[Rfam]
RNA sequence: AAACCGAAUAGAGGUAGCGACGCAAAAGAGUAAUGCAUGGAGCUGGCAAGCGAUGAUAUGUACGAAAGGUAACCGUCGCCGAACGUAUAAACUGGCAAGUUUAUUUCGUGGGGAUAUAGAGAAUAUCUAUAUCACUCCUUCAUGAACAUGAAGUGGCGCUAUGACUUAU
Numbered sequence: 001a002a003a004c005c006g007a008a009u010a011g012a013g014g015u016a017g018c019g020a021c022g023c024a025a026a027a028g029a030g031u032a033a034u035g036c037a038u039g040g041a042g043c044u045g046g047c048a049a050g051c052g053a054u055g056a057u058a059u060g061u062a063c064g065a066a067a068g069g070u071a072a073c074c075g076u077c078g079c080c081g082a083a084c085g086u087a088u089a090a091a092c093u094g095g096c097a098a099g100u101u102u103a104u105u106u107c108g109u110g111g112g113g114a115u116a117u118a119g120a121g122a123a124u125a126u127c128u129a130u131a132u133c134a135c136u137c138c139u140u141c142a143u144g145a146a147c148a149u150g151a152a153g154u155g156g157c158g159c160u161a162u163g164a165c166u167u168a169u
Stems, first nucleotide, its partner, number of pairs: 008162004017079006025070001034062005040057001083109003087104007110136002113133008138153006
This 169-nucleotide RNA sequence from Solobacterium moorei belongs to the Rfam family "Lysine riboswitch aptamer".
The family's consensus secondary structure is taken from published work.
A search with the family's covariance model found it, with a score of 78 bits.
NCBI's taxonomy places the organism under Bacteria, Bacillota, Erysipelotrichaceae, Solobacterium, Solobacterium moorei.